[Rfam]
RNA sequence: GACAAAACGGGUGAAAAGCCCGUUCGCCGGAAGACCAAGGGUUCCAGUCCAACGUUAAUCGGGGCUGGGUGAGUCGACCCCUAAGGCGAGGCCGAAAGGCGUAGUCGAUGGGAAAUCGGUUAAUAUUCCGAUACUUGUUUAUGAUGUGAUGGAGGGACGGAGAAGGUUAUGCCAGCCUGGCGAUGGUAGUCCAGGUGGAAGGAUGUAGGUAGGUUUGGUAGGCAAAUCCGCCAAACUAAUACUGAGAUCUGAUAGCAAGCGGUACAUGUACCGUGAAGUGGCAAAUACCCUGCUUCCAGGAAAAGCUUCUAAACGAUGGUCAUAAACGAAUCGUACCCGAAACCGACACAGGUGGUCAGGUAGAGAAUACCAAGGCGCU
Numbered sequence: 001g002a003c004a005a006a007a008c009g010g011g012u013g014a015a016a017a018g019c020c021c022g023u024u025c026g027c028c029g030g031a032a033g034a035c036c037a038a039g040g041g042u043u044c045c046a047g048u049c050c051a052a053c054g055u056u057a058a059u060c061g062g063g064g065c066u067g068g069g070u071g072a073g074u075c076g077a078c079c080c081c082u083a084a085g086g087c088g089a090g091g092c093c094g095a096a097a098g099g100c101g102u103a104g105u106c107g108a109u110g111g112g113a114a115a116u117c118g119g120u121u122a123a124u125a126u127u128c129c130g131a132u133a134c135u136u137g138u139u140u141a142u143g144a145u146g147u148g149a150u151g152g153a154g155g156g157a158c159g160g161a162g163a164a165g166g167u168u169a170u171g172c173c174a175g176c177c178u179g180g181c182g183a184u185g186g187u188a189g190u191c192c193a194g195g196u197g198g199a200a201g202g203a204u205g206u207a208g209g210u211a212g213g214u215u216u217g218g219u220a221g222g223c224a225a226a227u228c229c230g231c232c233a234a235a236c237u238a239a240u241a242c243u244g245a246g247a248u249c250u251g252a253u254a255g256c257a258a259g260c261g262g263u264a265c266a267u268g269u270a271c272c273g274u275g276a277a278g279u280g281g282c283a284a285a286u287a288c289c290c291u292g293c294u295u296c297c298a299g300g301a302a303a304a305g306c307u308u309c310u311a312a313a314c315g316a317u318g319g320u321c322a323u324a325a326a327c328g329a330a331u332c333g334u335a336c337c338c339g340a341a342a343c344c345g346a347c348a349c350a351g352g353u354g355g356u357c358a359g360g361u362a363g364a365g366a367a368u369a370c371c372a373a374g375g376c377g378c379u
Stems, first nucleotide, its partner, number of pairs: 006024006025377004033357004039337002044068006053061002075333003080111002085106003089102001091100003115132005135329011146314002151309004159296004165289003170283005175196006201250004208243003213236007221229002259274005343352002359371004
Source information:
Shown here is a 379-nucleotide part of an RNA from Lwoffella lincolnii, a member of the family "Bacterial large subunit ribosomal RNA". Pairs were carried over by alignment from the consensus structure, which is taken from published work.